Rfam assigns this 107-nucleotide RNA sequence from Piliocolobus tephrosceles to the family "Y RNA". The match comes from Rfam's covariance-model search (63 bits).
RNA sequence: GGCUGGUCUGAAGGUAGUGAGUUAUCUCAACUGACUGUUCAGUUACAGUUAGAACUGCUUGUUCUACCAUUUCCCCCUUCUCACUACCUGCACUUGACUAGUCCAAA
Number, nucleotide and partner (000 for none) at each position: 001g103002g102003c101004u100005g099006g098007u097008c096009u000010g095011a094012a000013g000014g091015u090016a085017g084018u083019g082020a081021g080022u000023u000024a000025u000026c000027u000028c000029a000030a000031c000032u000033g000034a000035c000036u000037g000038u000039u000040c000041a065042g064043u000044u000045a000046c000047a000048g000049u000050u000051a000052g000053a000054a000055c000056u000057g000058c000059u000060u000061g000062u000063u000064c042065u041066a000067c000068c000069a000070u000071u000072u000073c000074c000075c000076c000077c000078u000079u000080c021081u020082c019083a018084c017085u016086a000087c000088c000089u000090g015091c014092a000093c000094u011095u010096g008097a007098c006099u005100a004101g003102u002103c001104c000105a000106a000107a000

The family's consensus secondary structure is taken from published work. Rfam classes the family as a non-coding RNA gene.